[Rfam]
RNA sequence: AGCGACAAGAAAACGAUUUUGUUGGUUCUGUUGUGGGGACAAUAAGAUGGUGGAACACUGGCCCGGCCCACCGGUCGGUUCUUUUGUGGCAUUUUCUGGGCUGCCCAGUCCAAGCCGAGAGUGAUCCGUGUGUGUUGAGCAAAGGCUUGGCUCAGGCGGUUCCUAAAGAGGAGGGCAAUGCGUGAGGCUGGUUUCACAGAGCAGCCAUCACCUCCCCUCUCUCGGCAGUGGAUGGAUAACGGCUCAAGGCCACUCAGAUCCAGCAUGGCCUGGUGGCUCGUACCCAGCUGAACCACCCUCUUU
Number, nucleotide and partner (000 for none) at each position: 001a000002g000003c038004g023005a022006c021007a020008a019009g018010a017011a000012a000013a000014c000015g000016a000017u010018u009019u008020u007021g006022u005023u004024g000025g000026u000027u000028c037029u036030g000031u000032u000033g000034u000035g000036g029037g028038g003039a000040c000041a000042a000043u000044a302045a301046g300047a299048u000049g297050g296051u295052g294053g293054a000055a000056c290057a289058c287059u286060g285061g283062c000063c000064c280065g279066g278067c000068c276069c275070a274071c273072c272073g270074g269075u268076c267077g261078g260079u000080u258081c257082u256083u000084u000085u000086g253087u252088g251089g250090c000091a000092u248093u000094u000095u000096c000097u246098g245099g244100g243101c242102u241103g240104c000105c235106c234107a000108g233109u232110c231111c230112a229113a000114g226115c225116c224117g223118a222119g221120a220121g219122u000123g162124a161125u000126c159127c158128g157129u156130g000131u154132g153133u000134g151135u150136u149137g148138a147139g146140c145141a000142a000143a000144g000145g140146c139147u138148u137149g136150g135151c134152u000153c132154a131155g000156g129157c128158g127159g126160u000161u124162c123163c168164u000165a000166a000167a000168g163169a000170g215171g214172a213173g212174g211175g000176c000177a000178a000179u000180g000181c000182g205183u204184g000185a000186g000187g000188c199189u198190g197191g000192u000193u000194u000195c000196a000197c190198a189199g188200a000201g000202c000203a000204g183205c182206c000207a000208u000209c000210a000211c174212c173213u172214c171215c170216c000217c000218u000219c121220u120221c119222u118223c117224g116225g115226c114227a000228g000229u112230g111231g110232a109233u108234g106235g105236a000237u000238a000239a000240c103241g102242g101243c100244u099245c098246a097247a000248g092249g000250c089251c088252a087253c086254u000255c000256a082257g081258a080259u000260c078261c077262a000263g000264c000265a000266u000267g076268g075269c074270c073271u000272g072273g071274u070275g069276g068277c000278u066279c065280g064281u000282a000283c061284c000285c060286a059287g058288c000289u057290g056291a000292a000293c053294c052295a051296c050297c049298c000299u047300c046301u045302u044303u000
This 303-nucleotide sequence from Brassica cretica belongs to the Rfam family "Plant signal recognition particle RNA". Pairs were carried over by alignment from the consensus structure, which is taken from published work. The family's RNA type in Rfam is non-coding RNA gene. It scores 183 bits against the family's covariance model. Its Rfam clan is "SRP clan". The source organism's lineage runs through Eukaryota, Embryophyta, Spermatophyta, Mesangiospermae and Brassica.